[Rfam]
RNA sequence: UGGCGGGUCUUGGAUGAGAUCUCCAGCCGCCCGGCAGCGUCAAACCUGGCUCACCUUCCCCGGUGCCAGGCGGGACGCGGCUCGGCGCGGAGGGGGAUCUGAUCCAAGAACGCACCAACC
Number, nucleotide and partner (000 for none) at each position: 001u000002g000003g000004c000005g000006g000007g000008u000009c000010u107011u106012g105013g104014a103015u102016g000017a000018g099019a098020u000021c096022u095023c094024c093025a000026g000027c090028c089029g088030c087031c085032c084033g083034g082035c000036a000037g078038c077039g076040u075041c074042a000043a000044a000045c070046c069047u068048g067049g066050c065051u000052c063053a000054c000055c000056u000057u000058c000059c000060c000061c000062g000063g052064u000065g050066c049067c048068a047069g046070g045071c000072g000073g000074g041075a040076c039077g038078c037079g000080g000081c000082u034083c033084g032085g031086c000087g030088c029089g028090g027091a000092g000093g024094g023095g022096g021097a000098u019099c018100u000101g000102a015103u014104c013105c012106a011107a010108g000109a000110a000111c000112g000113c000114a000115c000116c000117a000118a000119c000120c000